[Rfam]
RNA sequence: UCGUGCUAGAUGGGGAGUUAGCGGUGCCCUGUAACCUGCAAUCCGCUAUAGCAGGGUUGAAUUCCUGGCUUAGACUUUAAAAUGUGAGGCCUGCCCCAUAAAAGUGGCGUUGAGAGCUUGGUCCCACGCAACAAGAACUCAUGAACCCCGUCAGGUCCGGAAGGAAGCAGCGGUAAGUGAAUAUUUUUGUGUGCCGUGGAUAAACCUGGUUUGAGUUAACUAUAUGGGUAACGCUUGUGUUUUAUUAGACGAAGCAAGGUGCACGA
Numbered sequence: 001u002c003g004u005g006c007u008a009g010a011u012g013g014g015g016a017g018u019u020a021g022c023g024g025u026g027c028c029c030u031g032u033a034a035c036c037u038g039c040a041a042u043c044c045g046c047u048a049u050a051g052c053a054g055g056g057u058u059g060a061a062u063u064c065c066u067g068g069c070u071u072a073g074a075c076u077u078u079a080a081a082a083u084g085u086g087a088g089g090c091c092u093g094c095c096c097c098a099u100a101a102a103a104g105u106g107g108c109g110u111u112g113a114g115a116g117c118u119u120g121g122u123c124c125c126a127c128g129c130a131a132c133a134a135g136a137a138c139u140c141a142u143g144a145a146c147c148c149c150g151u152c153a154g155g156u157c158c159g160g161a162a163g164g165a166a167g168c169a170g171c172g173g174u175a176a177g178u179g180a181a182u183a184u185u186u187u188u189g190u191g192u193g194c195c196g197u198g199g200a201u202a203a204a205c206c207u208g209g210u211u212u213g214a215g216u217u218a219a220c221u222a223u224a225u226g227g228g229u230a231a232c233g234c235u236u237g238u239g240u241u242u243u244a245u246u247a248g249a250c251g252a253a254g255c256a257a258g259g260u261g262c263a264c265g266a
Stems, first nucleotide, its partner, number of pairs: 001266006009058003012030004017025003035055005064259003068255003073250001075248002079243010092230002096227005104220002106217003114212005120206003124199005129191002132189005137182001139180004148173004156165003

A member of the RNA family "Bacterial large signal recognition particle RNA" from Clostridium kluyveri, 266 nucleotides long. The family's RNA type in Rfam is non-coding RNA gene. The match comes from Rfam's covariance-model search (214 bits).